small nucleolar RNA snoR127: a 197-nucleotide RNA from Handroanthus impetiginosus. Taxonomically the source falls in Handroanthus (Eukaryota, Mesangiospermae, asterids, Bignoniaceae). On this family, see Chen and Wu, Nucleic Acids Res 2009: "Mining small RNA sequencing data: a new approach to identify small nucleolar RNAs in Arabidopsis". The base pairs follow the family's consensus structure, which was predicted with RNAalifold.
[Rfam]
RNA sequence: CUGGAAUGAUGUACCUUAGCCAAAUCAGACAUUGAUGUGCUCCAAAAGGUGGUGUUUGCUAAUGCUUUUGUCAACUGUCAUUUGGAGGCUGUUAAAUUAUCUGCUUCCGUGCAGUGGCAGAAGCCCUACUGAGGCACCUUUUGUUGAAGUGCAUCUAACUGACGAUAAAAACAGGGAUUGGUAGAUACCUGACCAGA
Numbered sequence: 001c002u003g004g005a006a007u008g009a010u011g012u013a014c015c016u017u018a019g020c021c022a023a024a025u026c027a028g029a030c031a032u033u034g035a036u037g038u039g040c041u042c043c044a045a046a047a048g049g050u051g052g053u054g055u056u057u058g059c060u061a062a063u064g065c066u067u068u069u070g071u072c073a074a075c076u077g078u079c080a081u082u083u084g085g086a087g088g089c090u091g092u093u094a095a096a097u098u099a100u101c102u103g104c105u106u107c108c109g110u111g112c113a114g115u116g117g118c119a120g121a122a123g124c125c126c127u128a129c130u131g132a133g134g135c136a137c138c139u140u141u142u143g144u145u146g147a148a149g150u151g152c153a154u155c156u157a158a159c160u161g162a163c164g165a166u167a168a169a170a171a172c173a174g175g176g177a178u179u180g181g182u183a184g185a186u187a188c189c190u191g192a193c194c195a196g197a
Stems, first nucleotide, its partner, number of pairs: 001196004